Notes
This 120-nucleotide RNA sequence from Hungatella hathewayi belongs to the Rfam family "drum RNA". NCBI's taxonomy places the organism under Bacteria, Bacillati, Clostridia, Lachnospiraceae, Hungatella. Firmicutes, Bacteroidetes (1 example), Proteobacteria (2 examples), Spirochaetes (2 examples). It scores 65 bits against the family's covariance model. It is annotated as a small RNA.

RNA sequence: AGCUGUUAAUGCAUAUGGCUUGGUCAGACAAGUGAUAUGUACAGGCAAAGAAGGGGUUGCAUAGUCUCCACAUUCUGAAUAGGUUCAUGAAUAAAUAAGAACCGAAAGAAAAUAUGCCAA
Numbered sequence: 001a002g003c004u005g006u007u008a009a010u011g012c013a014u015a016u017g018g019c020u021u022g023g024u025c026a027g028a029c030a031a032g033u034g035a036u037a038u039g040u041a042c043a044g045g046c047a048a049a050g051a052a053g054g055g056g057u058u059g060c061a062u063a064g065u066c067u068c069c070a071c072a073u074u075c076u077g078a079a080u081a082g083g084u085u086c087a088u089g090a091a092u093a094a095a096u097a098a099g100a101a102c103c104g105a106a107a108g109a110a111a112a113u114a115u116g117c118c119a120a
Base pairs, nucleotide, nucleotide: 002046003045004044011040012039013038014037015036016035018033019032020031021030022029024078025077026076027075061115062114063113082103083102084101085100